RNA: eL15-Euryarchaeota ribosomal protein leader
RNA sequence: AGGGAUAAUUUCCCUUGGAUGUGGCUUUAAGCUGAACAAGAGG
Numbered sequence: 001a002g003g004g005a006u007a008a009u010u011u012c013c014c015u016u017g018g019a020u021g022u023g024g025c026u027u028u029a030a031g032c033u034g035a036a037c038a039a040g041a042g043g
Base pairs, nucleotide, nucleotide: 001015002014003013004012005011016039018037023033024032025031026030